RNA sequence: AGCCACGCGGUGAACACAAAGCGAACUAUUCUUUCGCCUUUUACUAAAGAAUACCGUGUGUUCGCCGCUAUUAGUGGCAUACGCCUAUUUUUGGAGAGGUUUCUUAUUAGAAGCCU
Numbered sequence: 001a002g003c004c005a006c007g008c009g010g011u012g013a014a015c016a017c018a019a020a021g022c023g024a025a026c027u028a029u030u031c032u033u034u035c036g037c038c039u040u041u042u043a044c045u046a047a048a049g050a051a052u053a054c055c056g057u058g059u060g061u062u063c064g065c066c067g068c069u070a071u072u073a074g075u076g077g078c079a080u081a082c083g084c085c086u087a088u089u090u091u092u093g094g095a096g097a098g099g100u101u102u103c104u105u106a107u108u109a110g111a112a113g114c115c116u
Base pairs, nucleotide, nucleotide: 003077004076005075006074008067009066010065011064012063013062014061015060016059017058018057027053028052029051030050031049032048033047034046097116098115099114100113101112102111
The family of this 116-nucleotide RNA sequence from Cannabis sativa is "U5 spliceosomal RNA". Lineage of the source: Eukaryota > Tracheophyta > Euphyllophyta > Cannabaceae > Cannabis. Pairs were carried over by alignment from the consensus structure, which is taken from published work. A reference for the family is Zwieb (1997), "The uRNA database", Nucleic Acids Res.